[Rfam]
RNA sequence: GCUGUAAUGUGUGCGUAGUUUCCGUCUGUGUCUGGUAGCAGUGUCUGUCUGUGUUUUGCACUCAGAUCUUGCUAUCCACACAGACAUCAUGCAGCCAGAGAAUAACUUGGGAUCAUAGUACGGGUCUAGUGAUGUCUUUUUGGACAUAUCUACCACUGGCCAGCCUCCAAAUUCCCACACACAG
Numbered sequence: 001g002c003u004g005u006a007a008u009g010u011g012u013g014c015g016u017a018g019u020u021u022c023c024g025u026c027u028g029u030g031u032c033u034g035g036u037a038g039c040a041g042u043g044u045c046u047g048u049c050u051g052u053g054u055u056u057u058g059c060a061c062u063c064a065g066a067u068c069u070u071g072c073u074a075u076c077c078a079c080a081c082a083g084a085c086a087u088c089a090u091g092c093a094g095c096c097a098g099a100g101a102a103u104a105a106c107u108u109g110g111g112a113u114c115a116u117a118g119u120a121c122g123g124g125u126c127u128a129g130u131g132a133u134g135u136c137u138u139u140u141u142g143g144a145c146a147u148a149u150c151u152a153c154c155a156c157u158g159g160c161c162a163g164c165c166u167c168c169a170a171a172u173u174c175c176c177a178c179a180c181a182c183a184g
Stems, first nucleotide, its partner, number of pairs: 013092004029082003033078003036074006043067005050060003108177005121163001123161004128157004133148003137144002